This 67-nucleotide sequence from Xiphorhynchus elegans belongs to the Rfam family "Small nucleolar RNA SNORD58". snoRNA U58 is found in introns 1, 3 and 6 of the ribosomal protein RPL17 gene in humans. The base pairs follow the family's consensus structure, which was predicted with PFOLD. A search with the family's covariance model found it, with a score of 68 bits. The family is grouped with related families in Rfam's "SNORD58 clan".
RNA sequence: CUGCGAUGAUGACUCUCUUAGGACACCUUUGGAUGUGACCGUGAAAAGAACCCAAUCCCUGAGCAGC
Numbered sequence: 001c002u003g004c005g006a007u008g009a010u011g012a013c014u015c016u017c018u019u020a021g022g023a024c025a026c027c028u029u030u031g032g033a034u035g036u037g038a039c040c041g042u043g044a045a046a047a048g049a050a051c052c053c054a055a056u057c058c059c060u061g062a063g064c065a066g067c
Stems, first nucleotide, its partner, number of pairs: 001066004